[Rfam]
RNA sequence: ACUAUUUUUGCGAUGUGUUCCUAAUAUGCAGUAUAAAUAUAUUGGGAGCAUUUUGCAUGCAUGGUUUUGUAUC
Numbered sequence: 001a002c003u004a005u006u007u008u009u010g011c012g013a014u015g016u017g018u019u020c021c022u023a024a025u026a027u028g029c030a031g032u033a034u035a036a037a038u039a040u041a042u043u044g045g046g047a048g049c050a051u052u053u054u055g056c057a058u059g060c061a062u063g064g065u066u067u068u069g070u071a072u073c
Stems, first nucleotide, its partner, number of pairs: 001065005009057005015051014
mir-450 microRNA precursor family: a 73-nucleotide RNA from Bos taurus. Rfam's curators put it in the seed alignment. The source organism's lineage runs through Eukaryota, Metazoa, Boreoeutheria, Ruminantia and Bos. The literature on the family includes a 2010 paper in Mol Hum Reprod by Ahn et al., "MicroRNA transcriptome in the newborn mouse ovaries determined by massive parallel sequencing". Rfam 15.1 lists 374 matches to the family in 128 species.